[Rfam]
Overview:
Shown here is a 346-nucleotide sequence from Gottschalkia acidurici, a member of the family "Bacterial RNase P class A". Ribonuclease P (RNase P) is a ubiquitous endoribonuclease, found in archaea, bacteria and eukarya as well as chloroplasts and mitochondria.

RNA sequence: UGAGUAAGUCAGAUGAUCGCAUGCUUAGGCAUGAGGAAAGUCCGGGCUCCAUAGGGUAGGAUGCUGGAUAACGUCCAGUGAGGGUGACCUCAAGGCUAGUGCAACAGAGAUAUACCGCCUAAACUUUUAAGUUUAGGUAAGGGUGGAAAGGUGGGGUAAGAGCCCACCAGCAACUAGGUGACUAGUUGGCUAUGUAAACCCCAUCCGGAGCAAGACCAAGCUAGGGAGUUUGGAGGUGGUUACCCGUCACCUUCCCGAUUGGUAGGUUGCUUGAACCCAUUGGCAACAAUGGGUCUAGAUAGAUGAUCGUCAGAUACAAAACCCGGCUUAUAGAUUUACUCACUUA
Numbered sequence: 001u002g003a004g005u006a007a008g009u010c011a012g013a014u015g016a017u018c019g020c021a022u023g024c025u026u027a028g029g030c031a032u033g034a035g036g037a038a039a040g041u042c043c044g045g046g047c048u049c050c051a052u053a054g055g056g057u058a059g060g061a062u063g064c065u066g067g068a069u070a071a072c073g074u075c076c077a078g079u080g081a082g083g084g085u086g087a088c089c090u091c092a093a094g095g096c097u098a099g100u101g102c103a104a105c106a107g108a109g110a111u112a113u114a115c116c117g118c119c120u121a122a123a124c125u126u127u128u129a130a131g132u133u134u135a136g137g138u139a140a141g142g143g144u145g146g147a148a149a150g151g152u153g154g155g156g157u158a159a160g161a162g163c164c165c166a167c168c169a170g171c172a173a174c175u176a177g178g179u180g181a182c183u184a185g186u187u188g189g190c191u192a193u194g195u196a197a198a199c200c201c202c203a204u205c206c207g208g209a210g211c212a213a214g215a216c217c218a219a220g221c222u223a224g225g226g227a228g229u230u231u232g233g234a235g236g237u238g239g240u241u242a243c244c245c246g247u248c249a250c251c252u253u254c255c256c257g258a259u260u261g262g263u264a265g266g267u268u269g270c271u272u273g274a275a276c277c278c279a280u281u282g283g284c285a286a287c288a289a290u291g292g293g294u295c296u297a298g299a300u301a302g303a304u305g306a307u308c309g310u311c312a313g314a315u316a317c318a319a320a321a322c323c324c325g326g327c328u329u330a331u332a333g334a335u336u337u338a339c340u341c342a343c344u345u346a
Stems, first nucleotide, its partner, number of pairs: 001342010011331001012311007020033005038329003042326005047210004054245004059206005064078005079093001080091004094201002099199002101195003115142002117138009150168006170190001171188007214268004224256005236250005275294008